[Rfam]
RNA: Small nucleolar RNA Z221/R21b
Organism: Apostasia shenzhenica
RNA sequence: GGGCAGCGAUGAGAAUUUCUGUCAUGCACCACUCUGAGAUGCAUUCUCGGUGAGGAUAGCAAACUCAAUACCCAAUCUAAUCUGAGCCC
Numbered sequence: 001g002g003g004c005a006g007c008g009a010u011g012a013g014a015a016u017u018u019c020u021g022u023c024a025u026g027c028a029c030c031a032c033u034c035u036g037a038g039a040u041g042c043a044u045u046c047u048c049g050g051u052g053a054g055g056a057u058a059g060c061a062a063a064c065u066c067a068a069u070a071c072c073c074a075a076u077c078u079a080a081u082c083u084g085a086g087c088c089c
Base pairs, nucleotide, nucleotide: 001089002088003087004086
Dot-bracket structure: ((((.................................................................................))))